This 101-nucleotide sequence from Terrisporobacter othiniensis belongs to the Rfam family "Purine riboswitch aptamer". The organism belongs to Terrisporobacter, within Bacteria. From the family's description: Riboswitches are metabolite binding domains within certain messenger RNAs that serve as precision sensors for their corresponding targets. Allosteric rearrangement of mRNA structure is mediated by ligand binding, and this results in modulation of gene expression. A class of riboswitches that selectively recognises guanine and becomes saturated at concentrations as low as 5 nM. In Bacillus subtilis, this mRNA motif is located on at least five separate transcriptional units that together encode 17 genes that are mostly involved in purine transport and purine nucleotide biosynthesis. It has also been shown that some members of this family are specific for adenine instead. It scores 74 bits against the family's covariance model. The family's consensus secondary structure is taken from published work.
RNA sequence: UAAAAAAUAAAGAAAAAUAUUCGUAUAUAAUGGUAAUAUGGUCCAUAAGUUUCUACGAACUCACCGUAAAUGAGAUCACUAUGAAUAGUUACAGAAUCUUA
Numbered sequence: 001u002a003a004a005a006a007a008u009a010a011a012g013a014a015a016a017a018u019a020u021u022c023g024u025a026u027a028u029a030a031u032g033g034u035a036a037u038a039u040g041g042u043c044c045a046u047a048a049g050u051u052u053c054u055a056c057g058a059a060c061u062c063a064c065c066g067u068a069a070a071u072g073a074g075a076u077c078a079c080u081a082u083g084a085a086u087a088g089u090u091a092c093a094g095a096a097u098c099u100u101a
Base pairs, nucleotide, nucleotide: 018087019086020085021084022083023082024081025080028048030046031045032044033043057077058076060074061073062072063071